[Rfam]
RNA sequence: CGCGUUGUGGUUCGCAAUCCUCCCACAAUAAAAAACUAAGGAAUC
Numbered sequence: 001c002g003c004g005u006u007g008u009g010g011u012u013c014g015c016a017a018u019c020c021u022c023c024c025a026c027a028a029u030a031a032a033a034a035a036c037u038a039a040g041g042a043a044u045c
Base pairs, nucleotide, nucleotide: 006027007026008025009024010023016037
RNA: PreQ1 (pre queuosine) riboswitch aptamer
Organism: Kingella potus